RNA Staph. aureus E (RoxS): a 113-nucleotide RNA from Mangrovibacillus cuniculi. It scores 103 bits against the family's covariance model.
[Rfam]
RNA sequence: GUGAAGUUGAUCACAAGCAAACAUAUACCCCUUUGUUUGACCGUGAAAAAUUUCUCCCAUCCCCUUUGUUCGUAAAGAGAAAAGACACCGUGGUUCCCCUGCGGUGUCUUUUC
Numbered sequence: 001g002u003g004a005a006g007u008u009g010a011u012c013a014c015a016a017g018c019a020a021a022c023a024u025a026u027a028c029c030c031c032u033u034u035g036u037u038u039g040a041c042c043g044u045g046a047a048a049a050a051u052u053u054c055u056c057c058c059a060u061c062c063c064c065u066u067u068g069u070u071c072g073u074a075a076a077g078a079g080a081a082a083a084g085a086c087a088c089c090g091u092g093g094u095u096c097c098c099c100u101g102c103g104g105u106g107u108c109u110u111u112u113c
Stems, first nucleotide, its partner, number of pairs: 003054006011046004018039006070078002082110011
Description: NCBI's taxonomy places the organism under Bacteria, Bacillati, Bacilli, Bacillaceae, Mangrovibacillus. The family's consensus secondary structure is taken from published work. Gene Ontology term of the family: regulation of translational initiation. About the family: It was shown to be regulated by the presence of nitric oxide (NO).